[Rfam]
RNA sequence: CCCGAAAAAGGCACCUCCGCCGAAAGGCGGACGACGCAAAGCCACGGGUCUACAGGAGGGCGACCUCCCACGACAGCCGGGCUGCCGAGG
Numbered sequence: 001c002c003c004g005a006a007a008a009a010g011g012c013a014c015c016u017c018c019g020c021c022g023a024a025a026g027g028c029g030g031a032c033g034a035c036g037c038a039a040a041g042c043c044a045c046g047g048g049u050c051u052a053c054a055g056g057a058g059g060g061c062g063a064c065c066u067c068c069c070a071c072g073a074c075a076g077c078c079g080g081g082c083u084g085c086c087g088a089g090g
Stems, first nucleotide, its partner, number of pairs: 001090001003087002011037002016031006035076001040083004045079003048074003
c-di-GMP-I-GGC riboswitch aptamer: a 90-nucleotide sequence from Coriobacteriaceae bacterium EMTCatB1. The literature on the family includes a 2017 paper in Proc Natl Acad Sci U S A by Weinberg et al., "Bioinformatic analysis of riboswitch structures uncovers variant classes with altered ligand specificity". Pairs were carried over by alignment from the consensus structure, which is taken from published work. Lineage of the source: Bacteria > Bacillati > Actinomycetota > Coriobacteriales > Coriobacteriaceae.